[Rfam]
RNA sequence: UUGCGGUGAUGACUAUCUUAGGACACCUUUGGAAUUUCUCAUGAAAACAAUAGAUCAGCCUGAGCAAC
Numbered sequence: 001u002u003g004c005g006g007u008g009a010u011g012a013c014u015a016u017c018u019u020a021g022g023a024c025a026c027c028u029u030u031g032g033a034a035u036u037u038c039u040c041a042u043g044a045a046a047a048c049a050a051u052a053g054a055u056c057a058g059c060c061u062g063a064g065c066a067a068c
Base pairs, nucleotide, nucleotide: 001067002066003065004064
RNA: Small nucleolar RNA SNORD58
Organism: Bagarius yarrelli